[Rfam]
RNA: Bacterial small subunit ribosomal RNA, nucleotides 1 to 569
Organism: bacterium HR41
RNA sequence: UUCGUGGAGAGUUUGAUCCUGGCUCAGGGCGAACGCUGGCGGCGUGCCUAACACAUGCAAGUGGAGCGACGAACCAGGCUUCGGCCUGGGGCAAAGCCGCGAACGGGUGAGUAACACGUGGGUUACCUACCCCGAAGACCGGGAUAACCCGGGGAAACUCGGGCUAAUACCGGAUGUGCUCCGUCUGCUGCGGCAGGCGGUGGAAAGGAAGCUUCGGCCUCCGCUUCGGGAUGGGCCCGCGGCCCAUUAGCUAGUUGGUGAGGUAACGGCUCACCAAGGCGACGAUGGGUAGCUGGUCUGAGAGGAUGGCCAGCCACACUGGGACUGAGACACGGCCCAGACUCCUACGGGAGGCAGCAGUGGGGAAUCUUGGGCAAUGCGCGAAAGCGUGACCCAGCGACGCCGCGUGGGGGAAGAAGGCCUUCGGGUUGUAAACCCCUUUCAGGAGGGACGAAGCCCGGUCCGUGAAUAGCGGUCCCGGGUGACGGUACCUCCAGAAGAAGCCCCGGCUAACUACGUGCCAGCAGCCGCGGUAAUACGUAGGGGGCUAGCGUUGCCCGGAAUUAUUG
Numbered sequence: 001u002u003c004g005u006g007g008a009g010a011g012u013u014u015g016a017u018c019c020u021g022g023c024u025c026a027g028g029g030c031g032a033a034c035g036c037u038g039g040c041g042g043c044g045u046g047c048c049u050a051a052c053a054c055a056u057g058c059a060a061g062u063g064g065a066g067c068g069a070c071g072a073a074c075c076a077g078g079c080u081u082c083g084g085c086c087u088g089g090g091g092c093a094a095a096g097c098c099g100c101g102a103a104c105g106g107g108u109g110a111g112u113a114a115c116a117c118g119u120g121g122g123u124u125a126c127c128u129a130c131c132c133c134g135a136a137g138a139c140c141g142g143g144a145u146a147a148c149c150c151g152g153g154g155a156a157a158c159u160c161g162g163g164c165u166a167a168u169a170c171c172g173g174a175u176g177u178g179c180u181c182c183g184u185c186u187g188c189u190g191c192g193g194c195a196g197g198c199g200g201u202g203g204a205a206a207g208g209a210a211g212c213u214u215c216g217g218c219c220u221c222c223g224c225u226u227c228g229g230g231a232u233g234g235g236c237c238c239g240c241g242g243c244c245c246a247u248u249a250g251c252u253a254g255u256u257g258g259u260g261a262g263g264u265a266a267c268g269g270c271u272c273a274c275c276a277a278g279g280c281g282a283c284g285a286u287g288g289g290u291a292g293c294u295g296g297u298c299u300g301a302g303a304g305g306a307u308g309g310c311c312a313g314c315c316a317c318a319c320u321g322g323g324a325c326u327g328a329g330a331c332a333c334g335g336c337c338c339a340g341a342c343u344c345c346u347a348c349g350g351g352a353g354g355c356a357g358c359a360g361u362g363g364g365g366a367a368u369c370u371u372g373g374g375c376a377a378u379g380c381g382c383g384a385a386a387g388c389g390u391g392a393c394c395c396a397g398c399g400a401c402g403c404c405g406c407g408u409g410g411g412g413g414a415a416g417a418a419g420g421c422c423u424u425c426g427g428g429u430u431g432u433a434a435a436c437c438c439c440u441u442u443c444a445g446g447a448g449g450g451a452c453g454a455a456g457c458c459c460g461g462u463c464c465g466u467g468a469a470u471a472g473c474g475g476u477c478c479c480g481g482g483u484g485a486c487g488g489u490a491c492c493u494c495c496a497g498a499a500g501a502a503g504c505c506c507c508g509g510c511u512a513a514c515u516a517c518g519u520g521c522c523a524g525c526a527g528c529c530g531c532g533g534u535a536a537u538a539c540g541u542a543g544g545g546g547g548c549u550a551g552c553g554u555u556g557c558c559c560g561g562a563a564u565u566a567u568u569g
Base pairs, nucleotide, nucleotide: 009025010024011023012022013021027559028558029557030556032555033554034553035552036551037550039406040405041404042403043402044401045399046398047364052362053361054360056359057358058357061100062099063098066097067096071092074089075088076087077086078085079084107317108316109315117241118240119239120238121237122236123235126234127233131230132229133228134227135226136225137224139173140172141171142170148163149162150161151160152159153158179202181200182199183198184197185196186195187194188193207222208221209220243289244288245287250280251279252278255277256276257275258274259273260272261271262270292314293313294312295311296307297306298305299304319340320339321338322337323336342353343352344351345350370396372395373394374393378391379390380389381388382387409439410438411437412436419430420429421428422427443500445495446494447493448492449491453486459480460479461478503548504547505546506545507544514543515542516541517540518539524531525530